RNA sequence: AUACCCUUCUUGACCUUUUGGCUAAGAUUAAGUGCAGUAUUCGUUCUUAUCAGUUUAAUAUCCGAUAUGUGGGCUAUUGGCUCACAUGAUAUUAAGAGUUUGUUUAGAUAUCACUUAUUUUAUUGAAAUCGAAAAUUUAUUACUAAAAGAACGCACACCAAACUUAUUUCUUGAGGGGGAGAGUCCACCACAGUAGCUUGCUACUGCGGCUCUCAAGCAUCGCCCAUGCGUUGCACUACUGCACGGGCCUAGCGCACCCCAC
Numbered sequence: 001a002u003a004c005c006c007u008u009c010u011u012g013a014c015c016u017u018u019u020g021g022c023u024a025a026g027a028u029u030a031a032g033u034g035c036a037g038u039a040u041u042c043g044u045u046c047u048u049a050u051c052a053g054u055u056u057a058a059u060a061u062c063c064g065a066u067a068u069g070u071g072g073g074c075u076a077u078u079g080g081c082u083c084a085c086a087u088g089a090u091a092u093u094a095a096g097a098g099u100u101u102g103u104u105u106a107g108a109u110a111u112c113a114c115u116u117a118u119u120u121u122a123u124u125g126a127a128a129u130c131g132a133a134a135a136u137u138u139a140u141u142a143c144u145a146a147a148a149g150a151a152c153g154c155a156c157a158c159c160a161a162a163c164u165u166a167u168u169u170c171u172u173g174a175g176g177g178g179g180a181g182a183g184u185c186c187a188c189c190a191c192a193g194u195a196g197c198u199u200g201c202u203a204c205u206g207c208g209g210c211u212c213u214c215a216a217g218c219a220u221c222g223c224c225c226a227u228g229c230g231u232u233g234c235a236c237u238a239c240u241g242c243a244c245g246g247g248c249c250u251a252g253c254g255c256a257c258c259c260c261a262c
Stems, first nucleotide, its partner, number of pairs: 008027003012023001014021002048067004053062001069156003179214007193204004217255002220252001222250001224246002227243003
The family of this 262-nucleotide sequence from Castanea mollissima is "U2 spliceosomal RNA". The family's RNA type in Rfam is spliceosomal small nuclear RNA. Its family is annotated with U2 snRNP, pre-mRNA branch point binding and mRNA branch site recognition in the Gene Ontology. The match comes from Rfam's covariance-model search (101 bits). For this family Rfam cites "Crystal structure of a model branchpoint-U2 snRNA duplex containing bulged adenosines" (Berglund et al., RNA, 2001). The family's consensus secondary structure is taken from published work.